[Rfam]
RNA sequence: UACUUAUAAAGAGUAGGCUGAGGGACUGGCCCUAUGAAGCCCGGCAACCUGCCGCAUAUUUGCGGUAAGGUGCUAAUUCCUGCAGGAUGGUAAUCCUGAGAGAUACGAG
Numbered sequence: 001u002a003c004u005u006a007u008a009a010a011g012a013g014u015a016g017g018c019u020g021a022g023g024g025a026c027u028g029g030c031c032c033u034a035u036g037a038a039g040c041c042c043g044g045c046a047a048c049c050u051g052c053c054g055c056a057u058a059u060u061u062g063c064g065g066u067a068a069g070g071u072g073c074u075a076a077u078u079c080c081u082g083c084a085g086g087a088u089g090g091u092a093a094u095c096c097u098g099a100g101a102g103a104u105a106c107g108a109g
Stems, first nucleotide, its partner, number of pairs: 001109001003107001005105003013042001016041003022032003026082001028080002043074004048070002051066004078101001083098006
The record is a 109-nucleotide sequence from Jeotgalibacillus soli, which matches "SAM riboswitch aptamer (S box leader)" in Rfam. The SAM riboswitch is found upstream of a number of genes which code for proteins involved in methionine or cysteine biosynthesis in Gram-positive bacteria. The organism belongs to Jeotgalibacillus, within Bacteria.